[Rfam]
Nucleotides: 106
Base pairs, nucleotide, nucleotide: 003038005036006035007034008033010031011030052069053068054067056065057064058063077095078094079093080092081091082090083089084088
Number, partner (000 for none) and nucleotide at each position: 001000g002000u003038u004000c005036g006035g007034c008033c009000c010031c011030c012000a013000c014000c015000c016000c017000a018000g019000u020000g021000c022000u023000g024000c025000c026000c027000a028000g029000c030011g031010g032000u033008g034007g035006c036005c037000c038003a039000g040000g041000c042000a043000c044000u045000u046000c047000g048000g049000g050000a051000g052069g053068c054067c055000g056065c057064c058063c059000a060000c061000g062000u063058g064057g065056g066000a067054g068053g069052c070000c071000a072000c073000a074000u075000c076000c077095c078094u079093g080092u081091u082090u083089a084088a085000u086000a087000u088084u089083u090082a091081a092080a093079c094078a095077g096000c097000a098000c099000u100000g101000u102000u103000c104000c105000c106000a